[Rfam]
RNA sequence: GGGGAUUGCUAUGAGGAUACCAAGCUCCCUCUUCUGAUUAAGGUUGAGGAAACUUGCCGGCAGAAUCGAACCUAAAAAUUAUCAGCCACCACUGAGUAA
Numbered sequence: 001g002g003g004g005a006u007u008g009c010u011a012u013g014a015g016g017a018u019a020c021c022a023a024g025c026u027c028c029c030u031c032u033u034c035u036g037a038u039u040a041a042g043g044u045u046g047a048g049g050a051a052a053c054u055u056g057c058c059g060g061c062a063g064a065a066u067c068g069a070a071c072c073u074a075a076a077a078a079u080u081a082u083c084a085g086c087c088a089c090c091a092c093u094g095a096g097u098a099a
Base pairs, nucleotide, nucleotide: 006099007098008097009096

Shown here is a 99-nucleotide RNA from Malus domestica, a member of the family "Small nucleolar RNA R30/Z108".
Clan: SNORD100 clan.
A search with the family's covariance model found it, with a score of 85 bits.
Gene Ontology terms of the family: nucleolus and RNA processing.
The literature on the family includes a 2002 paper in Curr Biol by Marker et al., "Experimental RNomics. Identification of 140 Candidates for Small Non-Messenger RNAs in the Plant Arabidopsis thaliana".